This 169-nucleotide RNA sequence from Yersinia mollaretii belongs to the Rfam family "Yersinia YenS sRNA". The organism belongs to Yersinia mollaretii, within Bacteria. A reference for the family is Tsai and Winans (2011), "The quorum-hindered transcription factor YenR of Yersinia enterocolitica inhibits pheromone production and promotes motility via a small non-coding RNA", Mol Microbiol. The family's RNA type in Rfam is small RNA.
RNA sequence: GCUUUAAACAAUUAGCUUUGAAUAUAAUUGAACUAAUAUCUUAGCGCACAGAUGCCAAGAAAGUUAGUCUGAAAAGAAUAUAAUUUCGCCAAUACCAGGGGACUUUUUUGAGUCCAACAGUACCGUUUUACCCCGCCAUCUGGAUGCCUUUACAUUCAGAUGGCCGUAA
Numbered sequence: 001g002c003u004u005u006a007a008a009c010a011a012u013u014a015g016c017u018u019u020g021a022a023u024a025u026a027a028u029u030g031a032a033c034u035a036a037u038a039u040c041u042u043a044g045c046g047c048a049c050a051g052a053u054g055c056c057a058a059g060a061a062a063g064u065u066a067g068u069c070u071g072a073a074a075a076g077a078a079u080a081u082a083a084u085u086u087c088g089c090c091a092a093u094a095c096c097a098g099g100g101g102a103c104u105u106u107u108u109u110g111a112g113u114c115c116a117a118c119a120g121u122a123c124c125g126u127u128u129u130a131c132c133c134c135g136c137c138a139u140c141u142g143g144a145u146g147c148c149u150u151u152a153c154a155u156u157c158a159g160a161u162g163g164c165c166g167u168a169a
Base pairs, nucleotide, nucleotide: 001126002125005122006121011037012036013035014034015033017032018031019030020029021028039060040059041058042057044055045054046053063118064117066113068111069110071108072107073106076087077086078085089100090099135164136163137162138161139160140159141158142157143156144155145154146153

Gene Ontology term of the family: quorum sensing.